Overview: A member of the RNA family "mir-166 microRNA precursor family" from Nyssa sinensis, 152 nucleotides long. Rfam links the family to the GO terms RISC complex and miRNA-mediated post-transcriptional gene silencing. The organism belongs to Nyssa, within Eukaryota. The literature on the family includes a 2002 paper in Genes Dev by Reinhart et al., "MicroRNAs in plants". It scores 84 bits against the family's covariance model. Rfam describes the family as follows. This family represents the plant microRNA (miRNA) precursor mir-166.

[Rfam]
RNA sequence: UUUGAGGGGAAUGUUGUCUGGCUCGAGGACCCUUUUGCUUGAUCAAUUUUUAUACAGAUCUAUAUCUCUAGAUCUGUUUACAAAUAUAGUAAACGAUCGAGAUCAUUUGAUCAUGUGUUAGUGUUGUCGGACCAGGCUUCAUUCCCCCCAAU
Numbered sequence: 001u002u003u004g005a006g007g008g009g010a011a012u013g014u015u016g017u018c019u020g021g022c023u024c025g026a027g028g029a030c031c032c033u034u035u036u037g038c039u040u041g042a043u044c045a046a047u048u049u050u051u052a053u054a055c056a057g058a059u060c061u062a063u064a065u066c067u068c069u070a071g072a073u074c075u076g077u078u079u080a081c082a083a084a085u086a087u088a089g090u091a092a093a094c095g096a097u098c099g100a101g102a103u104c105a106u107u108u109g110a111u112c113a114u115g116u117g118u119u120a121g122u123g124u125u126g127u128c129g130g131a132c133c134a135g136g137c138u139u140c141a142u143u144c145c146c147c148c149c150a151a152u
Stems, first nucleotide, its partner, number of pairs: 002151003006147008016137006024129003